[Rfam]
RNA sequence: AAAGAUGCCGAGAUAAGGAAGAGUACACAAGUAGGCGCUUUUAGAGAGGGUGUUCUAGGCUGAAAGACACCUAAGGGCUCAUUGUGGAAGGUCGCCUUGGAGCAGUUCUUGUGAAAGUACUAGUAGCAAGAGCCGGUUAGAAGCCGUUAUGAGAUGAAGAGCUACAACAAAGUGGUUUAUUUUGUUGUAUGAAAAAAGGUGGUACCGCGAAAACAACUCCAUUCGUCCUUUUG
Numbered sequence: 001a002a003a004g005a006u007g008c009c010g011a012g013a014u015a016a017g018g019a020a021g022a023g024u025a026c027a028c029a030a031g032u033a034g035g036c037g038c039u040u041u042u043a044g045a046g047a048g049g050g051u052g053u054u055c056u057a058g059g060c061u062g063a064a065a066g067a068c069a070c071c072u073a074a075g076g077g078c079u080c081a082u083u084g085u086g087g088a089a090g091g092u093c094g095c096c097u098u099g100g101a102g103c104a105g106u107u108c109u110u111g112u113g114a115a116a117g118u119a120c121u122a123g124u125a126g127c128a129a130g131a132g133c134c135g136g137u138u139a140g141a142a143g144c145c146g147u148u149a150u151g152a153g154a155u156g157a158a159g160a161g162c163u164a165c166a167a168c169a170a171a172g173u174g175g176u177u178u179a180u181u182u183u184g185u186u187g188u189a190u191g192a193a194a195a196a197a198g199g200u201g202g203u204a205c206c207g208c209g210a211a212a213a214c215a216a217c218u219c220c221a222u223u224c225g226u227c228c229u230u231u232u233g
Stems, first nucleotide, its partner, number of pairs: 007103002015098004026086005038075003048072006106132007134146003163189011196230004207226005